[Rfam]
RNA sequence: UUUCAGAUCACAGCGCCAGAGGUUGUGUAUUAAACAGUGAUGUAUGCAACCUGACGAGGAUGGAGAAAUUCGAAAUUUCGGCGGGUACUCCACGGUAAUGAUACUACCGUUAACAACUGGCAAAACCGGAGAGUGAUUUUCGGCACAAUAUCAGUUAGGUAUUGCAC
Numbered sequence: 001u002u003u004c005a006g007a008u009c010a011c012a013g014c015g016c017c018a019g020a021g022g023u024u025g026u027g028u029a030u031u032a033a034a035c036a037g038u039g040a041u042g043u044a045u046g047c048a049a050c051c052u053g054a055c056g057a058g059g060a061u062g063g064a065g066a067a068a069u070u071c072g073a074a075a076u077u078u079c080g081g082c083g084g085g086u087a088c089u090c091c092a093c094g095g096u097a098a099u100g101a102u103a104c105u106a107c108c109g110u111u112a113a114c115a116a117c118u119g120g121c122a123a124a125a126c127c128g129g130a131g132a133g134u135g136a137u138u139u140u141c142g143g144c145a146c147a148a149u150a151u152c153a154g155u156u157a158g159g160u161a162u163u164g165c166a167c
Stems, first nucleotide, its partner, number of pairs: 020052008029043001061092005070081004093109005115156005126143007
RNA: glmS glucosamine-6-phosphate activated ribozyme aptamer
Organism: Hathewaya proteolytica